[Rfam]
RNA sequence: GGUCGGUGAUGUGACGGCAUGUAUUACCUGAGUGAUGGGUGACGACUCCUCUAGCUCUAGAAUUACUCUGAGACCCG
Numbered sequence: 001g002g003u004c005g006g007u008g009a010u011g012u013g014a015c016g017g018c019a020u021g022u023a024u025u026a027c028c029u030g031a032g033u034g035a036u037g038g039g040u041g042a043c044g045a046c047u048c049c050u051c052u053a054g055c056u057c058u059a060g061a062a063u064u065a066c067u068c069u070g071a072g073a074c075c076c077g
Stems, first nucleotide, its partner, number of pairs: 001075004
The family of this 77-nucleotide sequence from Rostratula benghalensis is "Small nucleolar RNA SNORD45". A reference for the family is Kiss-Laszlo et al. (1996), "Site-specific ribose methylation of preribosomal RNA: a novel function for small nucleolar RNAs", Cell. The family's RNA type in Rfam is C/D-box small nucleolar RNA. NCBI's taxonomy places the organism under Eukaryota, Teleostomi, Archosauria, Neoaves, Rostratula. A search with the family's covariance model found it, with a score of 56 bits.